Notes: Shown here is a 141-nucleotide sequence from Rugositalea oryzae, a member of the family "Alphaproteobacterial sRNA BjrC1505". The match comes from Rfam's covariance-model search (118 bits). NCBI's taxonomy places the organism under Bacteria, Pseudomonadati, Pseudomonadota, Nitrobacteraceae, Rugositalea. Rfam classes the family as a small RNA. A reference for the family is Madhugiri et al. (2012), "Small RNAs of the Bradyrhizobium/Rhodopseudomonas lineage and their analysis", RNA Biol.
[Rfam]
RNA sequence: AUAAAGAUUAACUUAAAAUUAAGCUUUCUCGUUCAUUACUCACACCCGUCCAUCUUCAUGGACGCGAGUGGCUCCUGUCCACUCUGUUUGACGCCUCCCUGUUACCACCUUUGAGCCGCCGGCAACGGCGGCUCUUUUUUU
Numbered sequence: 001a002u003a004a005a006g007a008u009u010a011a012c013u014u015a016a017a018a019u020u021a022a023g024c025u026u027u028c029u030c031g032u033u034c035a036u037u038a039c040u041c042a043c044a045c046c047c048g049u050c051c052a053u054c055u056u057c058a059u060g061g062a063c064g065c066g067a068g069u070g071g072c073u074c075c076u077g078u079c080c081a082c083u084c085u086g087u088u089u090g091a092c093g094c095c096u097c098c099c100u101g102u103u104a105c106c107a108c109c110u111u112u113g114a115g116c117c118g119c120c121g122g123c124a125a126c127g128g129c130g131g132c133u134c135u136u137u138u139u140u141u
Stems, first nucleotide, its partner, number of pairs: 002042001004040001005014002015037002020035001022033003048063004066084006090103004113134009